[Rfam]
The record is a 94-nucleotide sequence, which matches "Small nucleolar RNA SNORD111" in Rfam. Gene Ontology terms of the family: nucleolus and RNA processing.

RNA sequence: CAGCCUGAAAUGAUGACUCUUUAAAAAAUUUCAUGUCUCUUCUCUGACAUUUUUCUCUGGACACAGUUUUUGCCUUAUGAAUCUGAUCAGGCUG
Dot-bracket structure: (((((((................................................................................)))))))
Numbered sequence: 001c002a003g004c005c006u007g008a009a010a011u012g013a014u015g016a017c018u019c020u021u022u023a024a025a026a027a028a029u030u031u032c033a034u035g036u037c038u039c040u041u042c043u044c045u046g047a048c049a050u051u052u053u054u055c056u057c058u059g060g061a062c063a064c065a066g067u068u069u070u071u072g073c074c075u076u077a078u079g080a081a082u083c084u085g086a087u088c089a090g091g092c093u094g
Stems, first nucleotide, its partner, number of pairs: 001094007